[Rfam]
RNA sequence: UGAGAGAACUCUCGCUAAGGAACUAGGCAAACUCGCCCCGUAACUUCGGGAGAAGGGGUGCCGACGGUGUGUCAAAGCACCGGUCGGUCGCAGUGAAGAGGGUCAAGCGACUGUUUACCAAAAACACAGGACUCUGCAAAGUCGAAAGACGACGUAUAGGGUCUGACGCCUGCCCGGUGCUGGAAGGUUAACGAGAGGGGUUAGUGCGCAAGCGCGAAGCUCUGAACCGAAGCCCCAGUAAACGGCGGCCGUAACUAUAACGGUCCUAAGGUAGCGAAAUUCCUUGUCGGGUAAGUUCCGACCCGCACGAAUGGCGUAACGACUUGACCGCUGUCUCAGCGAGAGACUCA
Numbered sequence: 001u002g003a004g005a006g007a008a009c010u011c012u013c014g015c016u017a018a019g020g021a022a023c024u025a026g027g028c029a030a031a032c033u034c035g036c037c038c039c040g041u042a043a044c045u046u047c048g049g050g051a052g053a054a055g056g057g058g059u060g061c062c063g064a065c066g067g068u069g070u071g072u073c074a075a076a077g078c079a080c081c082g083g084u085c086g087g088u089c090g091c092a093g094u095g096a097a098g099a100g101g102g103u104c105a106a107g108c109g110a111c112u113g114u115u116u117a118c119c120a121a122a123a124a125c126a127c128a129g130g131a132c133u134c135u136g137c138a139a140a141g142u143c144g145a146a147a148g149a150c151g152a153c154g155u156a157u158a159g160g161g162u163c164u165g166a167c168g169c170c171u172g173c174c175c176g177g178u179g180c181u182g183g184a185a186g187g188u189u190a191a192c193g194a195g196a197g198g199g200g201u202u203a204g205u206g207c208g209c210a211a212g213c214g215c216g217a218a219g220c221u222c223u224g225a226a227c228c229g230a231a232g233c234c235c236c237a238g239u240a241a242a243c244g245g246c247g248g249c250c251g252u253a254a255c256u257a258u259a260a261c262g263g264u265c266c267u268a269a270g271g272u273a274g275c276g277a278a279a280u281u282c283c284u285u286g287u288c289g290g291g292u293a294a295g296u297u298c299c300g301a302c303c304c305g306c307a308c309g310a311a312u313g314g315c316g317u318a319a320c321g322a323c324u325u326g327a328c329c330g331c332u333g334u335c336u337c338a339g340c341g342a343g344a345g346a347c348u349c350a
Stems, first nucleotide, its partner, number of pairs: 001350004009345008018336003035059005044049001060088006067081001069080004089093001101329007108321002112126003129164008137154001141150003167316004172246003177243002179239005186234003193227001197223005204215004247265006266270001276303001286302006

Rfam assigns this 350-nucleotide part of an RNA from Leptospirillum sp. Group II '5-way CG' to the family "Bacterial large subunit ribosomal RNA". NCBI's taxonomy places the organism under Bacteria, Pseudomonadati, Nitrospiria, Leptospirillum, Leptospirillum sp. Group II. Gene Ontology terms of the family: ribosome and structural constituent of ribosome.